A member of the RNA family "Mammalian CPEB3 ribozyme" from Alligator sinensis, 77 nucleotides long. Gene Ontology term of the family: RNA nuclease activity. Rfam 15.1 lists 5,706 matches to the family in 197 species.
RNA sequence: GGUUGCAAGCUUGAGGCCACAGCAGAAGUGCUUACAGCGCAGCCCUGUCAGAUUCCAGUGAAUCUGUGGAUUCUUCU
Numbered sequence: 001g002g003u004u005g006c007a008a009g010c011u012u013g014a015g016g017c018c019a020c021a022g023c024a025g026a027a028g029u030g031c032u033u034a035c036a037g038c039g040c041a042g043c044c045c046u047g048u049c050a051g052a053u054u055c056c057a058g059u060g061a062a063u064c065u066g067u068g069g070a071u072u073c074u075u076c077u
Base pairs, nucleotide, nucleotide: 013045015044016043017042021077022076024074025073026072027071028040029039030038049066050065051064052063053062054061055060
The mammalian CPEB3 ribozyme is a self cleaving RNA located in the second intron of the CPEB3 gene which belongs to a family of genes regulating messenger RNA polyadenylation. The base pairs follow the family's consensus structure, which is taken from published work.